[Rfam]
RNA sequence: AUUACCUGGGAAUCUUGUUAAAAUGCAAAUUAGGAUACAGUAGGGCUGGGGUGGAGCCCAAGAGUCUGCAUUUCUAACAAGUUCCCAGGUGGAGCUAU
Dot-bracket structure: ..(((...(((..((((((((((.(((.(.(...............................).).))).))).))))))).)))...))).......
RNA: mir-544 microRNA precursor family
Organism: Neophocaena asiaeorientalis